Notes:
The family of this 80-nucleotide RNA from Acetatifactor muris is "skipping-rope RNA". Taxonomically the source falls in Acetatifactor (Bacteria, Bacillati, Clostridia, Lachnospirales). Pairs were carried over by alignment from the consensus structure, which is taken from published work.
RNA sequence: UAUAAAUAAGGACGGAACAGGCAGCCGUCACUCCUUUUAUGGACUUAAAGAGAUGCUGGAGUGCCACCCAGCUAUUUAUA
Numbered sequence: 001u002a003u004a005a006a007u008a009a010g011g012a013c014g015g016a017a018c019a020g021g022c023a024g025c026c027g028u029c030a031c032u033c034c035u036u037u038u039a040u041g042g043a044c045u046u047a048a049a050g051a052g053a054u055g056c057u058g059g060a061g062u063g064c065c066a067c068c069c070a071g072c073u074a075u076u077u078a079u080a
Base pairs, nucleotide, nucleotide: 001080002079003078004077005076006075007074008073011029012028013027014026015025020065021064022063023062031050032043033042034041055072056071057070058069059068